[Rfam]
RNA sequence: UUGAUAAAAAUUUGAAAAAUUAAAUUUCUUCGCACAGAGUGAAAGAAUUUGAAUUUUUUAGCGACAAAGAACCAUUUAACCGAGUUUAGUAAGAUUCAUAAGAAGCAUUGAGAUGGGGGAUAUAUGAAAUAUAGUGGUGGUCCCGAAUGGACUCGAACCAUCGACCACUACCA
Numbered sequence: 001u002u003g004a005u006a007a008a009a010a011u012u013u014g015a016a017a018a019a020u021u022a023a024a025u026u027u028c029u030u031c032g033c034a035c036a037g038a039g040u041g042a043a044a045g046a047a048u049u050u051g052a053a054u055u056u057u058u059u060a061g062c063g064a065c066a067a068a069g070a071a072c073c074a075u076u077u078a079a080c081c082g083a084g085u086u087u088a089g090u091a092a093g094a095u096u097c098a099u100a101a102g103a104a105g106c107a108u109u110g111a112g113a114u115g116g117g118g119g120a121u122a123u124a125u126g127a128a129a130u131a132u133a134g135u136g137g138u139g140g141u142c143c144c145g146a147a148u149g150g151a152c153u154c155g156a157a158c159c160a161u162c163g164a165c166c167a168c169u170a171c172c173a
Stems, first nucleotide, its partner, number of pairs: 024048003030042004135170006144163002147161004
RNA: Bacterial antisense RNA HPnc0260
Organism: Campylobacter geochelonis